[Rfam]
RNA sequence: UGAUGCCGAGGCCACGCCGGGUAGGAUCGAGGGUACAGCAUCG
Numbered sequence: 001u002g003a004u005g006c007c008g009a010g011g012c013c014a015c016g017c018c019g020g021g022u023a024g025g026a027u028c029g030a031g032g033g034u035a036c037a038g039c040a041u042c043g
Stems, first nucleotide, its partner, number of pairs: 002042005011034003015029002017025002